A member of the RNA family "U12 minor spliceosomal RNA" from Theobroma cacao, 156 nucleotides long. Rfam classes the family as a spliceosomal small nuclear RNA. It scores 55 bits against the family's covariance model.

RNA sequence: AAAUCAAAUUAAUGAGUAAGGAAAACAAAGCGAGCGGUGGGAACCGCUUGCAGCGCCCAAUCUCAAAGGUGCGCAAGAAUUUGUGGAGGGAUGAUAGGCUGGUCGAGCGCUGACGCUGCGCUUACUUUGUGCAGAACUCGCUUGAGCGGGCCUCCC
Dot-bracket structure: ...(.(..........).)..........((((((((......)))))))).((((..............))))..............((.....(((((.(.((.(((.......(((((.......))))).....))).))..).))))).))
Numbered sequence: 001a002a003a004u005c006a007a008a009u010u011a012a013u014g015a016g017u018a019a020g021g022a023a024a025a026c027a028a029a030g031c032g033a034g035c036g037g038u039g040g041g042a043a044c045c046g047c048u049u050g051c052a053g054c055g056c057c058c059a060a061u062c063u064c065a066a067a068g069g070u071g072c073g074c075a076a077g078a079a080u081u082u083g084u085g086g087a088g089g090g091a092u093g094a095u096a097g098g099c100u101g102g103u104c105g106a107g108c109g110c111u112g113a114c115g116c117u118g119c120g121c122u123u124a125c126u127u128u129g130u131g132c133a134g135a136a137c138u139c140g141c142u143u144g145a146g147c148g149g150g151c152c153u154c155c156c
Stems, first nucleotide, its partner, number of pairs: 004019001006017001030051008053074004089156002096153005102147001104144002107141003117133005